[Rfam]
RNA sequence: UUUUUUGUCUUCUAGGGUUCCGCCAUAAGGGUCUGGUCCGAGAGAAGACAGCGGUUUAUUUGGAACCGUACACGGAGGGAUAAAAGCCCGGGAGGU
Numbered sequence: 001u002u003u004u005u006u007g008u009c010u011u012c013u014a015g016g017g018u019u020c021c022g023c024c025a026u027a028a029g030g031g032u033c034u035g036g037u038c039c040g041a042g043a044g045a046a047g048a049c050a051g052c053g054g055u056u057u058a059u060u061u062g063g064a065a066c067c068g069u070a071c072a073c074g075g076a077g078g079g080a081u082a083a084a085a086g087c088c089c090g091g092g093a094g095g096u
Stems, first nucleotide, its partner, number of pairs: 007049006015039002020036002022033001023030002051069007071091001073094001077089003
Rfam assigns this 96-nucleotide RNA from Thermincola carboxydiphila to the family "Guanidine-I riboswitch aptamer".
From the family's description: This family represents a conserved RNA structure found upstream of the ykkC and yxkD genes in Bacillus subtilis and related genes in other bacteria. The function of this family is unclear although it has been suggested that it may function to switch on efflux pumps and detoxification systems in response to harmful environmental molecules.
A search with the family's covariance model found it, with a score of 84 bits.
Pairs were carried over by alignment from the consensus structure.
Rfam 15.1 lists 1,509 matches to the family in 1,281 species.
The source organism's lineage runs through Bacteria, Bacillota, Clostridia, Eubacteriales and Thermincola carboxydiphila.